[Rfam]
RNA sequence: UACCUUAAUUGCUUUGCAAUAGGAUGGGAUACGAAGCCCCUCGAGGGAUAAUACAGGCUCUCCCAUCCAACUCCUAUUCCGACACGUCCUCGUCGUGCAGAGUGGUAACGUGUGUUACCACAUAACCAAGCUUGGGUACACGGGAUUGACCCAACCCCUUGGGCGGAUGGUGGCAUAUGGCAAACCAGGCGGGG
Numbered sequence: 001u002a003c004c005u006u007a008a009u010u011g012c013u014u015u016g017c018a019a020u021a022g023g024a025u026g027g028g029a030u031a032c033g034a035a036g037c038c039c040c041u042c043g044a045g046g047g048a049u050a051a052u053a054c055a056g057g058c059u060c061u062c063c064c065a066u067c068c069a070a071c072u073c074c075u076a077u078u079c080c081g082a083c084a085c086g087u088c089c090u091c092g093u094c095g096u097g098c099a100g101a102g103u104g105g106u107a108a109c110g111u112g113u114g115u116u117a118c119c120a121c122a123u124a125a126c127c128a129a130g131c132u133u134g135g136g137u138a139c140a141c142g143g144g145a146u147u148g149a150c151c152c153a154a155c156c157c158c159u160u161g162g163g164c165g166g167a168u169g170g171u172g173g174c175a176u177a178u179g180g181c182a183a184a185c186c187a188g189g190c191g192g193g194g
Stems, first nucleotide, its partner, number of pairs: 010102001012100002015097001022068008032056001072194004078189001080188001084096003088105002109179006116172004124168001126166002132154006156163002

Overview
The family of this 194-nucleotide sequence from Anopheles gambiae is "drz-agam-2-2 ribozyme". Pairs were carried over by alignment from the consensus structure, which is taken from published work. Rfam 15.1 lists 486 matches to the family in 10 species. A search with the family's covariance model found it, with a score of 154 bits. The literature on the family includes a 2009 paper in Science by Webb et al., "Widespread occurrence of self-cleaving ribozymes".